[Rfam]
RNA: Small nucleolar RNA R11/Z151
Organism: Vitis vinifera
RNA sequence: GGGCUUAUGAUGAUAAUUUCAAUUAUCUUAGCGGAUUUCAGUGAGAUUUAUUCAAUGAUCUGAUUGUUACACACACUGAAGCCU
Numbered sequence: 001g002g003g004c005u006u007a008u009g010a011u012g013a014u015a016a017u018u019u020c021a022a023u024u025a026u027c028u029u030a031g032c033g034g035a036u037u038u039c040a041g042u043g044a045g046a047u048u049u050a051u052u053c054a055a056u057g058a059u060c061u062g063a064u065u066g067u068u069a070c071a072c073a074c075a076c077u078g079a080a081g082c083c084u
Stems, first nucleotide, its partner, number of pairs: 001084005